[Rfam]
RNA: Actinobacteria sRNA Ms_IGR-5
RNA sequence: ACACGAGGAAGGAGGUGGUCUGCAGUUGAAUGACAUAUGGACACGUGAGGUGACCAUCAGCUAGGUGGUGUGCUGCCCGGGUUUGCCCAGCGGCGCCGCUGCUCAGCGAAUCCACGGUGGUCACCCGGCCCCCGCAUCCCUGUCACGUCCUGACAGGCCAGGCUCUCAUCGAGCGGUGCGGGGGUCGUUCCAU
Numbered sequence: 001a002c003a004c005g006a007g008g009a010a011g012g013a014g015g016u017g018g019u020c021u022g023c024a025g026u027u028g029a030a031u032g033a034c035a036u037a038u039g040g041a042c043a044c045g046u047g048a049g050g051u052g053a054c055c056a057u058c059a060g061c062u063a064g065g066u067g068g069u070g071u072g073c074u075g076c077c078c079g080g081g082u083u084u085g086c087c088c089a090g091c092g093g094c095g096c097c098g099c100u101g102c103u104c105a106g107c108g109a110a111u112c113c114a115c116g117g118u119g120g121u122c123a124c125c126c127g128g129c130c131c132c133c134g135c136a137u138c139c140c141u142g143u144c145a146c147g148u149c150c151u152g153a154c155a156g157g158c159c160a161g162g163c164u165c166u167c168a169u170c171g172a173g174c175g176g177u178g179c180g181g182g183g184g185u186c187g188u189u190c191c192a193u
Stems, first nucleotide, its partner, number of pairs: 014058006060107003064103002067100004072094003126187013139157006